[Rfam]
RNA sequence: UCCUUCAGUGUUAAAGCAAUCUCUAUUGAACCAAGCUCCAAACCAAGUUCAUUGGAGUUUGUUUCAAUAUUGCAAGAA
Numbered sequence: 001u002c003c004u005u006c007a008g009u010g011u012u013a014a015a016g017c018a019a020u021c022u023c024u025a026u027u028g029a030a031c032c033a034a035g036c037u038c039c040a041a042a043c044c045a046a047g048u049u050c051a052u053u054g055g056a057g058u059u060u061g062u063u064u065c066a067a068u069a070u071u072g073c074a075a076g077a078a
Stems, first nucleotide, its partner, number of pairs: 003076003006072007014064006021057005027051005
Rfam assigns this 78-nucleotide RNA from Dipodomys ordii to the family "mir-653 microRNA precursor family". The base pairs follow the family's consensus structure, which was predicted with RNAalifold. Rfam 15.1 lists 116 matches to the family in 116 species. The match comes from Rfam's covariance-model search (95 bits).